About this RNA: Shown here is a 79-nucleotide sequence from Musa balbisiana, a member of the family "Plastid-rpl20 3UTR RNA". The base pairs follow the family's consensus structure, which was predicted with LocARNA. The literature on the family includes a 2023 paper in Plant Commun by Richter et al., "Retrograde signaling in plants: A critical review focusing on the GUN pathway and beyond". It scores 58 bits against the family's covariance model. Rfam classes the family as a cis-regulatory element. Taxonomically the source falls in Musa (Eukaryota, Streptophytina, Embryophyta, Tracheophyta).

RNA sequence: AACGAAUUCCCGGAGAAGGAACUCCGGGAAAAUAGAAUAAAAAUAAUUAAGAUCGUAAUGGAAUGAAACGGAUAUCAAU
Numbered sequence: 001a002a003c004g005a006a007u008u009c010c011c012g013g014a015g016a017a018g019g020a021a022c023u024c025c026g027g028g029a030a031a032a033u034a035g036a037a038u039a040a041a042a043a044u045a046a047u048u049a050a051g052a053u054c055g056u057a058a059u060g061g062a063a064u065g066a067a068a069c070g071g072a073u074a075u076c077a078a079u
Stems, first nucleotide, its partner, number of pairs: 007030009072079001